[Rfam]
A member of the RNA family "c-di-GMP-I riboswitch aptamer" from Pelotomaculum isophthalicicum, 90 nucleotides long. The organism belongs to Pelotomaculum isophthalicicum, within Bacteria. It scores 56 bits against the family's covariance model. Pairs were carried over by alignment from the consensus structure, which is taken from published work. About the family: GEMM was predicted in a large-scale screen for bacterial structured RNA regulatory elements. Rfam links the family to the GO term cyclic-di-GMP binding.
RNA sequence: CAACGUGUUGGGCAAACCCGUGCGAAAGCCGGGGACGCAUAGCCUUGGGUCUAACGCUUAGUAGUAAGCCAUGAUUGCCAGGCAACAAGG
Number, nucleotide and partner (000 for none) at each position: 001c000002a000003a000004c000005g000006u000007g000008u000009u000010g000011g000012g038013c037014a000015a000016a000017c033018c032019c031020g030021u000022g029023c028024g000025a000026a000027a000028g023029c022030c020031g019032g018033g017034g000035a000036c000037g013038c012039a000040u000041a000042g083043c082044c081045u000046u080047g079048g078049g075050u074051c073052u000053a000054a000055c000056g069057c068058u067059u066060a000061g000062u000063a000064g000065u000066a059067a058068g057069c056070c000071a000072u000073g051074a050075u049076u000077g000078c048079c047080a046081g044082g043083c042084a000085a000086c000087a000088a000089g000090g000